Overview: Shown here is an 84-nucleotide sequence from Mandrillus leucophaeus, a member of the family "mir-548 microRNA precursor family". A search with the family's covariance model found it, with a score of 90 bits.

Nucleotides: 084
Base pairs, nucleotide, nucleotide: 001084002083003082004081005080006079007078008077009076010075011074012073013072014071015070016069017068018067019066020065021064022063023062024061025060026059027058028057029056030055031054032053033052034051035050038047039046040045
Number, partner (000 for none) and nucleotide at each position: 001084u002083a003082u004081u005080a006079g007078g008077u009076u010075g011074g012073u013072g014071c015070a016069a017068a018067a019066g020065u021064c022063a023062u024061u025060g026059c027058g028057g029056u030055u031054u032053u033052u034051g035050c036000c037000a038047u039046u040045a041000u042000u043000u044000u045040u046039a047038a048000c049000a050035g051034c052033a053032a054031a055030a056029a057028u058027u059026g060025c061024a062023a063022u064021g065020a066019c067018u068017u069016u070015u071014g072013c073012a074011c075010c076009a077008a078007c079006c080005u081004a082003a083002u084001a
A reference for the family is Jima et al. (2010), "Deep sequencing of the small RNA transcriptome of normal and malignant human B cells identifies hundreds of novel microRNAs", Blood. Taxonomically the source falls in Mandrillus (Eukaryota, Sarcopterygii, Simiiformes, Cercopithecidae).